[Rfam]
Rfam assigns this 81-nucleotide sequence from Marinobacter sp. ELB17 to the family "c-di-GMP-I riboswitch aptamer". From the family's description: GEMM was predicted in a large-scale screen for bacterial structured RNA regulatory elements.
RNA sequence: CUAACCAGCAGCCAAACCAUUUGUGAGGAUGGGACGGAAAGCCAAGGAUCUCUGGGGAAAAGAGACAGCCUGGUUGCCUAG
Numbered sequence: 001c002u003a004a005c006c007a008g009c010a011g012c013c014a015a016a017c018c019a020u021u022u023g024u025g026a027g028g029a030u031g032g033g034a035c036g037g038a039a040a041g042c043c044a045a046g047g048a049u050c051u052c053u054g055g056g057g058a059a060a061a062g063a064g065a066c067a068g069c070c071u072g073g074u075u076g077c078c079u080a081g
Stems, first nucleotide, its partner, number of pairs: 012037002017032006040075004045071003049065005